[Rfam]
RNA sequence: UGGGUAACAUUAAGUAUAUGGUAGGGAAGUAGAGUUCAGCAAAAUGUGAAAUAAAAGAAUAAAUGGCUAGAAAGGAAUUUAGGAUACUAUCCAAUAUAUGGUGCGUCCGAGUGGACUCGAACCACCGACCCCCACCA
Numbered sequence: 001u002g003g004g005u006a007a008c009a010u011u012a013a014g015u016a017u018a019u020g021g022u023a024g025g026g027a028a029g030u031a032g033a034g035u036u037c038a039g040c041a042a043a044a045u046g047u048g049a050a051a052u053a054a055a056a057g058a059a060u061a062a063a064u065g066g067c068u069a070g071a072a073a074g075g076a077a078u079u080u081a082g083g084a085u086a087c088u089a090u091c092c093a094a095u096a097u098a099u100g101g102u103g104c105g106u107c108c109g110a111g112u113g114g115a116c117u118c119g120a121a122c123c124a125c126c127g128a129c130c131c132c133c134a135c136c137a
Stems, first nucleotide, its partner, number of pairs: 005026001009022004045061003099134003103130001108127002111125004
Dot-bracket structure: ....(...((((......))))...)..................(((...........))).....................................(((.(....((.((((.......))))))..).)))...
Shown here is a 137-nucleotide RNA sequence from Xenorhabdus bovienii, a member of the family "Bacterial antisense RNA HPnc0260". The base pairs follow the family's consensus structure, which was predicted with CMfinder. Taxonomically the source falls in Xenorhabdus bovienii (Bacteria, Pseudomonadati, Enterobacterales, Morganellaceae).